Rfam assigns this 87-nucleotide RNA from Maledivibacter halophilus to the family "c-di-GMP-I riboswitch aptamer".
RNA sequence: AUCACGAUAAGGCAAACUUAUUGAAAGAUAAGGACGCAAAGUCAUGUGUCUAAGGAAUAAUUGUUCUAUGAUCGACAGACUGCCGAA
Numbered sequence: 001a002u003c004a005c006g007a008u009a010a011g012g013c014a015a016a017c018u019u020a021u022u023g024a025a026a027g028a029u030a031a032g033g034a035c036g037c038a039a040a041g042u043c044a045u046g047u048g049u050c051u052a053a054g055g056a057a058u059a060a061u062u063g064u065u066c067u068a069u070g071a072u073c074g075a076c077a078g079a080c081u082g083c084c085g086a087a
Stems, first nucleotide, its partner, number of pairs: 012037002017032006040081004045077003048072003055066004
A search with the family's covariance model found it, with a score of 81 bits. The family's consensus secondary structure is taken from published work. Lineage of the source: Bacteria > Bacillati > Bacillota > Clostridia > Maledivibacter. GEMM was predicted in a large-scale screen for bacterial structured RNA regulatory elements. Rfam links the family to the GO term cyclic-di-GMP binding.